[Rfam]
RNA sequence: ACCACCCCUAGCCCGACGGGGCGAACAGCGGAGUCCUUCACCGCCUGGGGUGGUAUUUCUUGAAGG
Numbered sequence: 001a002c003c004a005c006c007c008c009u010a011g012c013c014c015g016a017c018g019g020g021g022c023g024a025a026c027a028g029c030g031g032a033g034u035c036c037u038u039c040a041c042c043g044c045c046u047g048g049g050g051u052g053g054u055a056u057u058u059c060u061u062g063a064a065g066g
Stems, first nucleotide, its partner, number of pairs: 001054008011022004028044004035066005
A member of the RNA family "int-alpA RNA" from Nitrosomonas sp. Nm166, 66 nucleotides long. Taxonomically the source falls in Nitrosomonas (Bacteria, Betaproteobacteria, Nitrosomonadales, Nitrosomonadaceae). Rfam classes the family as a small RNA. The family has 167 seed sequences and 577 matches in Rfam 15.1.